[Rfam]
RNA sequence: AAAAUCACUUAGGGGUGCUGUAGGUUUUACGGCUGAGAACAAACCCUUAGAACCUGAUCGGAUAAUGCCGACGUAGGGAAAGUAUUUAGGUUAUGU
Dot-bracket structure: ......((((((((.((((((.......))))).......)..)))).....((((.((((......))))..))))..)))).............

The record is a 96-nucleotide sequence from Porphyromonas cangingivalis, which matches "TPP riboswitch aptamer (THI element)" in Rfam. Gene Ontology term of the family: thiamine pyrophosphate binding. The base pairs follow the family's consensus structure, which is taken from published work. Rfam describes the family as follows. Vitamin B(1) in its active form thiamin pyrophosphate (TPP) is an essential coenzyme that is synthesised by coupling of pyrimidine and thiazole moieties in bacteria. Lineage of the source: Bacteria > Bacteroidota > Bacteroidia > Bacteroidales > Porphyromonas.